[Rfam]
RNA sequence: CCGUGGUGCAUUGUAGUUGCAUUGCAUGUGCCAGUGCGUGUGGUGCAAUGCAACUGCUGUGCAGCAUGG
Numbered sequence: 001c002c003g004u005g006g007u008g009c010a011u012u013g014u015a016g017u018u019g020c021a022u023u024g025c026a027u028g029u030g031c032c033a034g035u036g037c038g039u040g041u042g043g044u045g046c047a048a049u050g051c052a053a054c055u056g057c058u059g060u061g062c063a064g065c066a067u068g069g
Stems, first nucleotide, its partner, number of pairs: 001069004006065001007063005013057004019051001021049007
RNA: mir-33 microRNA precursor family
Organism: Eptatretus burgeri